The record is a 67-nucleotide sequence from Mycolicibacterium sp. P9-64, which matches "ASdes TB sRNA" in Rfam. NCBI's taxonomy places the organism under Bacteria, Mycobacteriales, Mycobacteriaceae, Mycobacterium, Mycobacterium (subgen. Mycolicibacterium). It scores 44 bits against the family's covariance model. A reference for the family is Arnvig and Young (2009), "Identification of small RNAs in Mycobacterium tuberculosis", Mol Microbiol.

RNA sequence: UGGCGGACGGGUCGAUCUCGCGCGUCACCACCAGGUAGUUGCGCAGUGCGACGGCGUGCAGAUGCUC
Numbered sequence: 001u002g003g004c005g006g007a008c009g010g011g012u013c014g015a016u017c018u019c020g021c022g023c024g025u026c027a028c029c030a031c032c033a034g035g036u037a038g039u040u041g042c043g044c045a046g047u048g049c050g051a052c053g054g055c056g057u058g059c060a061g062a063u064g065c066u067c
Stems, first nucleotide, its partner, number of pairs: 008058002010029003014026003034055001036053001039051005